[Rfam]
RNA sequence: UUUGAGAUAACAUGCUUCUUUAUAUGCCCAUAUGACAUUACAUAGCUAUGGAAUGUAAGGAAGUGUGUGGUUUCAAG
Numbered sequence: 001u002u003u004g005a006g007a008u009a010a011c012a013u014g015c016u017u018c019u020u021u022a023u024a025u026g027c028c029c030a031u032a033u034g035a036c037a038u039u040a041c042a043u044a045g046c047u048a049u050g051g052a053a054u055g056u057a058a059g060g061a062a063g064u065g066u067g068u069g070g071u072u073u074c075a076a077g
Stems, first nucleotide, its partner, number of pairs: 007071002010068016028051005